[Rfam]
RNA sequence: ACCGUGUACUUACCUACUAUAUGGUAGCCGAGAUACAUGUAUUUCACCUACUAUACAGUAGGUAAGCACGCGGUUU
Numbered sequence: 001a002c003c004g005u006g007u008a009c010u011u012a013c014c015u016a017c018u019a020u021a022u023g024g025u026a027g028c029c030g031a032g033a034u035a036c037a038u039g040u041a042u043u044u045c046a047c048c049u050a051c052u053a054u055a056c057a058g059u060a061g062g063u064a065a066g067c068a069c070g071c072g073g074u075u076u
Stems, first nucleotide, its partner, number of pairs: 001074007009066007017058002020055008030045002033042003
Background: The family of this 76-nucleotide sequence from Ameiurus melas is "mir-7563 microRNA precursor family". NCBI's taxonomy places the organism under Eukaryota, Opisthokonta, Chordata, Osteoglossocephalai, Ameiurus. It scores 85 bits against the family's covariance model.